[Rfam]
Rfam assigns this 131-nucleotide sequence from Zingiber officinale to the family "mir-393 microRNA precursor family". The family has 27 seed sequences and 1,052 matches in Rfam 15.1. NCBI's taxonomy places the organism under Eukaryota, Embryophyta, Magnoliopsida, Mesangiospermae, Zingiber.

RNA sequence: GAAGGAGAAUUCCAAAGGGAUCGCAUUGAUCUCUCUCCCCUCUCUUCUUCUUGUUCUUCCCUUCUUUAAUUUUAGAUUUUAUUAGUGUGGUUUAAUUUGAGAGAUCAUGCGAUUCCUUUGGAAUUUCCCAU
Dot-bracket structure: .(.((..((((((((((((((.((((.(((((...(..............................................................)..))))))))).))))))))))))))..)).)